Rfam assigns this 68-nucleotide RNA sequence from Oceanobacillus picturae to the family "Bacillaceae-1 RNA". The source organism's lineage runs through Bacteria, Bacillati, Bacilli, Caryophanales and Oceanobacillus. The base pairs follow the family's consensus structure, which is taken from published work.

[Rfam]
Nucleotides: 068
Stems, first nucleotide, its partner, number of pairs: 011051007026040005055067003
Number, partner (000 for none) and nucleotide at each position: 001000a002000u003000u004000c005000a006000u007000u008000g009000a010000a011051c012050u013049u014048c015047u016046g017045u018000u019000a020000a021000a022000a023000u024000c025000g026040u027039c028038c029037a030036c031000g032000u033000c034000c035000u036030g037029u038028g039027g040026a041000c042000a043000a044000a045017a046016c047015a048014g049013a050012a051011g052000u053000c054000a055067a056066c057065a058000c059000a060000u061000c062000c063000u064000a065057u066056g067055u068000g